This 161-nucleotide RNA sequence from Gallus gallus belongs to the Rfam family "Small nucleolar RNA SNORD97". Lineage of the source: Eukaryota > Metazoa > Teleostomi > Sauropsida > Gallus. The family's RNA type in Rfam is C/D-box small nucleolar RNA.
[Rfam]
RNA sequence: UUGCCCAGUGAUUAUAGCAAGACGCGUUAUUAUGAGGACUUAUGCUGGAACUCUUCCUACUUCUCUUCCUCCUCCUACUUUGCCCCUUCCUCUUUCACCUUAUUCCUCACUUUCCCUAGGGUAUCCAGCGUCCUGUGAGCAAGACUGAGAUAUGAGGGCAA
Number, nucleotide and partner (000 for none) at each position: 001u161002u160003g159004c158005c157006c156007a000008g000009u000010g000011a000012u000013u000014a000015u000016a000017g000018c000019a000020a000021g000022a000023c000024g000025c000026g000027u000028u000029a000030u000031u000032a000033u000034g000035a054036g053037g052038a000039c000040u049041u048042a000043u000044g000045c000046u000047g000048g041049a040050a000051c000052u037053c036054u035055u000056c000057c000058u000059a000060c000061u000062u000063c000064u000065c000066u000067u000068c000069c000070u000071c000072c000073u000074c000075c000076u000077a000078c000079u000080u000081u000082g000083c000084c000085c000086c000087u000088u000089c000090c000091u000092c000093u000094u000095u000096c000097a000098c000099c000100u000101u000102a000103u000104u000105c000106c000107u000108c000109a000110c000111u000112u000113u000114c000115c000116c000117u000118a000119g000120g000121g000122u000123a000124u000125c000126c000127a000128g000129c000130g000131u000132c000133c000134u000135g000136u000137g000138a000139g000140c000141a000142a000143g000144a000145c000146u000147g000148a000149g000150a000151u000152a000153u000154g000155a000156g006157g005158g004159c003160a002161a001